RNA sequence: UUGCUAUAGCCGAGCGUAUGUCGUACUGAUAGUGUGAUUGAUAGCUAUCAUAAGACACACGCGGCUGUAGCGG
Numbered sequence: 001u002u003g004c005u006a007u008a009g010c011c012g013a014g015c016g017u018a019u020g021u022c023g024u025a026c027u028g029a030u031a032g033u034g035u036g037a038u039u040g041a042u043a044g045c046u047a048u049c050a051u052a053a054g055a056c057a058c059a060c061g062c063g064g065c066u067g068u069a070g071c072g073g
Stems, first nucleotide, its partner, number of pairs: 001073006008066004014062003019057004027050005

This 73-nucleotide RNA sequence from Diabrotica virgifera belongs to the Rfam family "mir-970 microRNA precursor family". Pairs were carried over by alignment from the consensus structure, which was predicted with RNAalifold. Taxonomically the source falls in Diabrotica virgifera (Eukaryota, Opisthokonta, Bilateria, Ecdysozoa).